[Rfam]
RNA sequence: AGCAGAAUGAUGAGCCACUCGCAUAGAGUGGCAUUAGGCCGAGUGUUAGCGGCGAGAUUCUUCUCGUCGCGAUGACUAAAGCCCAUAAGCGAUCCUGGUAUCUGACUGCU
Numbered sequence: 001a002g003c004a005g006a007a008u009g010a011u012g013a014g015c016c017a018c019u020c021g022c023a024u025a026g027a028g029u030g031g032c033a034u035u036a037g038g039c040c041g042a043g044u045g046u047u048a049g050c051g052g053c054g055a056g057a058u059u060c061u062u063c064u065c066g067u068c069g070c071g072a073u074g075a076c077u078a079a080a081g082c083c084c085a086u087a088a089g090c091g092a093u094c095c096u097g098g099u100a101u102c103u104g105a106c107u108g109c110u
Stems, first nucleotide, its partner, number of pairs: 001110005
Rfam assigns this 110-nucleotide sequence from Caenorhabditis bovis to the family "Caenorhabditis snoRNA ceN69". NCBI's taxonomy places the organism under Eukaryota, Ecdysozoa, Chromadorea, Rhabditidae, Caenorhabditis. Rfam 15.1 lists 11 matches to the family in 10 species. The pairing is the family consensus, mapped onto this sequence. The literature on the family includes a 2007 paper in BMC Mol Biol by Jia et al., "Systematic identification of non-coding RNA 2,2,7-trimethylguanosine cap structures in Caenorhabditis elegans". Its family is annotated with RNA processing and nucleolus in the Gene Ontology.